RNA sequence: CGUACCUUUCGGGGCAGGGUGAAAUUCCCUACCGGCGGUGAUGAGCUGAUGCUCUUAGUCCGUGACCCGGUGCUACCGGUGGAUUUGGUGAAACUCCAAAGCCGACAGUUAAAGUCUGGAUGGGAGAAAGGAAUU
Numbered sequence: 001c002g003u004a005c006c007u008u009u010c011g012g013g014g015c016a017g018g019g020u021g022a023a024a025u026u027c028c029c030u031a032c033c034g035g036c037g038g039u040g041a042u043g044a045g046c047u048g049a050u051g052c053u054c055u056u057a058g059u060c061c062g063u064g065a066c067c068c069g070g071u072g073c074u075a076c077c078g079g080u081g082g083a084u085u086u087g088g089u090g091a092a093a094c095u096c097c098a099a100a101g102c103c104g105a106c107a108g109u110u111a112a113a114g115u116c117u118g119g120a121u122g123g124g125a126g127a128a129a130g131g132a133a134u135u
Base pairs, nucleotide, nucleotide: 003133005131006130007129008128009127010126017029018028019027031115032114033104034103035063036062037061038060058102059101067079068078084100085099086098087097088096106118107117108116

The record is a 135-nucleotide sequence from Jeotgalibacillus alimentarius, which matches "FMN riboswitch aptamer (RFN element)" in Rfam.